This 70-nucleotide RNA sequence belongs to the Rfam family "mir-19 microRNA precursor family". Gene Ontology terms of the family: miRNA-mediated post-transcriptional gene silencing and RISC complex. It is one of the family's seed sequences. On this family, see Lagos-Quintana et al., Science 2001: "Identification of novel genes coding for small expressed RNAs".

RNA sequence: CUGUUAGUUUUGCAUAGUUGCACUACAAGAAGAGAGUGGUUGUGCAAAUCUAUGCAAAGCUGAUGGUGGC
Numbered sequence: 001c002u003g004u005u006a007g008u009u010u011u012g013c014a015u016a017g018u019u020g021c022a023c024u025a026c027a028a029g030a031a032g033a034g035a036g037u038g039g040u041u042g043u044g045c046a047a048a049u050c051u052a053u054g055c056a057a058a059g060c061u062g063a064u065g066g067u068g069g070c
Stems, first nucleotide, its partner, number of pairs: 001066016018047006025040002